[Rfam]
RNA: uup RNA
RNA sequence: GGCGAAUGAACUCUGUACAGAUGGUACCGGUGAAACAUUGUACGGAGC
Numbered sequence: 001g002g003c004g005a006a007u008g009a010a011c012u013c014u015g016u017a018c019a020g021a022u023g024g025u026a027c028c029g030g031u032g033a034a035a036c037a038u039u040g041u042a043c044g045g046a047g048c
Base pairs, nucleotide, nucleotide: 011047012046013045014044015043017041018040019039